[Rfam]
RNA sequence: ACCAGGCACUAGGGGUGCUUCAAUUCGACGUUUUACGUUGUUUUGCGGCUGAGAUCAUACCCUACAAACCAGAUCAAAGUAAUUUUUGCGCGGGGAAGUGCCUACGGUUUAUU
Numbered sequence: 001a002c003c004a005g006g007c008a009c010u011a012g013g014g015g016u017g018c019u020u021c022a023a024u025u026c027g028a029c030g031u032u033u034u035a036c037g038u039u040g041u042u043u044u045g046c047g048g049c050u051g052a053g054a055u056c057a058u059a060c061c062c063u064a065c066a067a068a069c070c071a072g073a074u075c076a077a078a079g080u081a082a083u084u085u086u087u088g089c090g091c092g093g094g095g096a097a098g099u100g101c102c103u104a105c106g107g108u109u110u111a112u113u
Base pairs, nucleotide, nucleotide: 006101007100008099009098010097011063012062013061014060016057017049018048019047021045022044023043069094070093072091075088076087077086078085
Rfam assigns this 113-nucleotide RNA to the family "TPP riboswitch aptamer (THI element)". The family has 115 seed sequences and 16,130 matches in Rfam 15.1. Its family is annotated with thiamine pyrophosphate binding in the Gene Ontology.